[Rfam]
RNA sequence: CCUUCCUACAGAGGCGUGUCUGUAGCUCCCUGUCUUUGCACACGUAAGACUUGGAGGAAAAGAAACGUGGACUUGGAGAAGUCUGGGGGCAGCUUGCUCCCUUCAGGCUCAAGAUCAACCUUGAAAGAGAA
Numbered sequence: 001c002c003u004u005c006c007u008a009c010a011g012a013g014g015c016g017u018g019u020c021u022g023u024a025g026c027u028c029c030c031u032g033u034c035u036u037u038g039c040a041c042a043c044g045u046a047a048g049a050c051u052u053g054g055a056g057g058a059a060a061a062g063a064a065a066c067g068u069g070g071a072c073u074u075g076g077a078g079a080a081g082u083c084u085g086g087g088g089g090c091a092g093c094u095u096g097c098u099c100c101c102u103u104c105a106g107g108c109u110c111a112a113g114a115u116c117a118a119c120c121u122u123g124a125a126a127g128a129g130a131a
Base pairs, nucleotide, nucleotide: 002057003056004055005054006053015044016043017042018041019040021038025029071122091109092108093107094106095105096104
Rfam assigns this 131-nucleotide sequence from Suricata suricatta to the family "Small nucleolar RNA SNORA38".
The source organism's lineage runs through Eukaryota, Bilateria, Gnathostomata, Dipnotetrapodomorpha and Suricata.
From the family's description: ACA38 is a member of the H/ACA class of snoRNA that guide the sites of modification of uridines to pseudouridines.